[Rfam]
RNA sequence: AGAUGAAUAACAGGGCAAUUUUCCUUUGGCAGAAAUAAUUAUAUACAUUUGGUGCAUUUACUCUCAAUCUCAAGUACCGGCACCGAAUGCUUUCUGCCAAAGGAGAAUUGCCCUGCCAUUCAACU
Numbered sequence: 001a002g003a004u005g006a007a008u009a010a011c012a013g014g015g016c017a018a019u020u021u022u023c024c025u026u027u028g029g030c031a032g033a034a035a036u037a038a039u040u041a042u043a044u045a046c047a048u049u050u051g052g053u054g055c056a057u058u059u060a061c062u063c064u065c066a067a068u069c070u071c072a073a074g075u076a077c078c079g080g081c082a083c084c085g086a087a088u089g090c091u092u093u094c095u096g097c098c099a100a101a102g103g104a105g106a107a108u109u110g111c112c113c114u115g116c117c118a119u120u121c122a123a124c125u
Base pairs, nucleotide, nucleotide: 005121006120007119008118011115012114013113014112015111016110017109018108019107021105022104023103024102027099028098029097030096031095032094033093034092035091
The record is a 125-nucleotide RNA sequence from Prunus dulcis, which matches "mir-399 microRNA precursor family" in Rfam. A reference for the family is Jones-Rhoades and Bartel (2004), "Computational Identification of Plant MicroRNAs and Their Targets, Including a Stress-Induced miRNA", Mol Cell. Pairs were carried over by alignment from the consensus structure, which was predicted with PFOLD. Rfam describes the family as follows. mir-399 was identified in both Arabidopsis thaliana and Oryza sativa computationally and was later experimentally verified. mir-399 is thought to target mRNAs coding for a phosphatase transporter. The mature sequence is excised from the 3' arm of the hairpin. Rfam links the family to the GO terms RISC complex and miRNA-mediated post-transcriptional gene silencing. Lineage of the source: Eukaryota > Viridiplantae > Streptophyta > fabids > Prunus. The family has 13 seed sequences and 2,396 matches in Rfam 15.1.